[Rfam]
RNA: SAM riboswitch aptamer (S box leader)
Organism: Intestinibacter bartlettii
RNA sequence: GUCUUAUCAAGAGCGGUGGAGGGACUGGCCCUGUGAAACCCAGCAACCAAUAUAUCUAUAUAUGGUGCUAAAUCCUGCAGCAUUAUGCUGAAAGAUAAGUA
Numbered sequence: 001g002u003c004u005u006a007u008c009a010a011g012a013g014c015g016g017u018g019g020a021g022g023g024a025c026u027g028g029c030c031c032u033g034u035g036a037a038a039c040c041c042a043g044c045a046a047c048c049a050a051u052a053u054a055u056c057u058a059u060a061u062a063u064g065g066u067g068c069u070a071a072a073u074c075c076u077g078c079a080g081c082a083u084u085a086u087g088c089u090g091a092a093a094g095a096u097a098a099g100u101a
Base pairs, nucleotide, nucleotide: 003099004098005097006096007095008094013041015040016039017038021031022030023029025077027075028074042069043068044067045066047065048064050061051060052059053058073093078090079089080088081087082086